[Rfam]
RNA: tRNA
RNA sequence: GCGAGCGUGGCGGAAUUGGUAGACGCGCUGGAUUUAGGUUCCAGUGUCUUAGGACGUGGGGGUUCAAGUCCCCCCGCUCGCA
Numbered sequence: 001g002c003g004a005g006c007g008u009g010g011c012g013g014a015a016u017u018g019g020u021a022g023a024c025g026c027g028c029u030g031g032a033u034u035u036a037g038g039u040u041c042c043a044g045u046g047u048c049u050u051a052g053g054a055c056g057u058g059g060g061g062g063u064u065c066a067a068g069u070c071c072c073c074c075c076g077c078u079c080g081c082a
Base pairs, nucleotide, nucleotide: 001081002080003079004078005077006076007075010026011025012024028044029043030042031041032040058074059073060072061071062070